[Rfam]
Background:
Rfam assigns this 188-nucleotide sequence from Castor canadensis to the family "Connexin-43 internal ribosome entry site (IRES)". Rfam's curators write: This family represents the connexin-43 internal ribosome entry site (IRES) which allows cap independent translation during conditions such as heat shock and stress. The organism belongs to Castor, within Eukaryota. Gene Ontology term of the family: ribosome binding. A search with the family's covariance model found it, with a score of 152 bits.
Nucleotides: 188
Base pairs, nucleotide, nucleotide: 015132016131017130022128023127025125026124027123028122029119030118032116037112038111040109042108043107044106059087060086061085062084063083064082088103090101092099141184142183143182144181145180150171151170152169153167154166155165156164157163
Number, partner (000 for none) and nucleotide at each position: 001000u002000c003000a004000u005000u006000c007000a008000a009000u010000a011000a012000g013000a014000a015132u016131u017130c018000a019000a020000g021000a022128u023127u024000a025125g026124g027123g028122g029119g030118a031000a032116g033000g034000c035000g036000u037112g038111a039000g040109g041000a042108a043107a044106g045000u046000a047000c048000c049000a050000a051000a052000c053000a054000g055000c056000a057000g058000c059087a060086g061085a062084c063083u064082u065000u066000u067000a068000a069000a070000c071000u072000u073000u074000a075000a076000a077000u078000a079000g080000a081000c082064a083063g084062g085061u086060c087059u088103g089000a090101g091000u092099g093000c094000c095000u096000g097000a098000a099092c100000u101090u102000a103088c104000c105000u106044u107043u108042u109040c110000a111038u112037u113000u114000a115000a116032c117000c118030u119029c120000a121000u122028c123027c124026u125025c126000c127023a128022a129000g130017g131016a132015g133000u134000u135000c136000c137000a138000c139000c140000a141184c142183u143182u144181g145180g146000c147000c148000u149000a150171c151170u152169u153167c154166a155165c156164u157163u158000c159000u160000u161000u162000u163157a164156a165155g166154u167153g168000c169152a170151a171150g172000a173000g174000a175000a176000g177000u178000g179000c180145c181144c182143a183142g184141g185000c186000a187000a188000c